[Rfam]
RNA sequence: ACCACUGAGCCACCUUCCCAGCCCCAAGUUACCCUUUUAAAAUAAUGUUCCAGGGCUGGGAAGGUGGCUCAGUGGU
Numbered sequence: 001a002c003c004a005c006u007g008a009g010c011c012a013c014c015u016u017c018c019c020a021g022c023c024c025c026a027a028g029u030u031a032c033c034c035u036u037u038u039a040a041a042a043u044a045a046u047g048u049u050c051c052a053g054g055g056c057u058g059g060g061a062a063g064g065u066g067g068c069u070c071a072g073u074g075g076u
Base pairs, nucleotide, nucleotide: 002075003074004073005072006071007070008069009068010067011066012065013064014063015062016061017060018059019058020057021056022055023054024053
A member of the RNA family "mir-3473 microRNA precursor family" from Dipodomys ordii, 76 nucleotides long. Rfam 15.1 lists 1,094 matches to the family in 20 species. Pairs were carried over by alignment from the consensus structure, which was predicted with RNAalifold.